[Rfam]
RNA sequence: AGAUAUGAUAGAGGCGCGGGCUUUAUCAGUACCAUUUGGGCAAAGGAACAGGACAGCCGUCCAUAUGGGAAAGGAAAGACCGCCGAAGAAUUGUUUCCCGGUCCGGGGAAGCUUUUCUGGGGCGCAGCAGAAUAUGCUGCGGACUGUCACAAGGAUGUGGAGCGCUAUCUGUAAU
Numbered sequence: 001a002g003a004u005a006u007g008a009u010a011g012a013g014g015c016g017c018g019g020g021c022u023u024u025a026u027c028a029g030u031a032c033c034a035u036u037u038g039g040g041c042a043a044a045g046g047a048a049c050a051g052g053a054c055a056g057c058c059g060u061c062c063a064u065a066u067g068g069g070a071a072a073g074g075a076a077a078g079a080c081c082g083c084c085g086a087a088g089a090a091u092u093g094u095u096u097c098c099c100g101g102u103c104c105g106g107g108g109a110a111g112c113u114u115u116u117c118u119g120g121g122g123c124g125c126a127g128c129a130g131a132a133u134a135u136g137c138u139g140c141g142g143a144c145u146g147u148c149a150c151a152a153g154g155a156u157g158u159g160g161a162g163c164g165c166u167a168u169c170u171g172u173a174a175u
Stems, first nucleotide, its partner, number of pairs: 007169005016083004021078004032068004037063003087118004093112006119145002123141007147160005
Overview:
A member of the RNA family "Lysine riboswitch aptamer" from Eisenbergiella massiliensis, 175 nucleotides long. The match comes from Rfam's covariance-model search (106 bits). NCBI's taxonomy places the organism under Bacteria, Bacillota, Clostridia, Lachnospiraceae, Eisenbergiella. The base pairs follow the family's consensus structure, which is taken from published work.